RNA sequence: UCCUAGCCCCGAUAGAAGCGGCAUCCUUUUUAUCCCGAUUUUUUUUUUCGGGAUAAAAAGAUAUAGCUGAUAGCGGGAAAUAGC
Numbered sequence: 001u002c003c004u005a006g007c008c009c010c011g012a013u014a015g016a017a018g019c020g021g022c023a024u025c026c027u028u029u030u031u032a033u034c035c036c037g038a039u040u041u042u043u044u045u046u047u048u049c050g051g052g053a054u055a056a057a058a059a060g061a062u063a064u065a066g067c068u069g070a071u072a073g074c075g076g077g078a079a080a081u082a083g084c
Stems, first nucleotide, its partner, number of pairs: 009076003013072002018067002023062003029057010
This 84-nucleotide sequence from Flavobacterium faecale belongs to the Rfam family "Flavo-1 RNA".
The match comes from Rfam's covariance-model search (77 bits).
Lineage of the source: Bacteria > Bacteroidota > Flavobacteriia > Flavobacteriales > Flavobacterium.